[Rfam]
RNA sequence: UACUAGCCCUGAUAGCAGUGAAAAUCCUUUUAGUUUUUUCUUUAAAAACUAAAAGAUUAUAACGGAUAGCAGGAAUAAGC
Numbered sequence: 001u002a003c004u005a006g007c008c009c010u011g012a013u014a015g016c017a018g019u020g021a022a023a024a025u026c027c028u029u030u031u032a033g034u035u036u037u038u039u040c041u042u043u044a045a046a047a048a049c050u051a052a053a054a055g056a057u058u059a060u061a062a063c064g065g066a067u068a069g070c071a072g073g074a075a076u077a078a079g080c
Stems, first nucleotide, its partner, number of pairs: 009072003013068002018063002023058004029053010
Overview: The family of this 80-nucleotide RNA from Flavobacterium sp. PL002 is "Flavo-1 RNA". A search with the family's covariance model found it, with a score of 81 bits. By type it is a small RNA. The organism belongs to Flavobacterium, within Bacteria.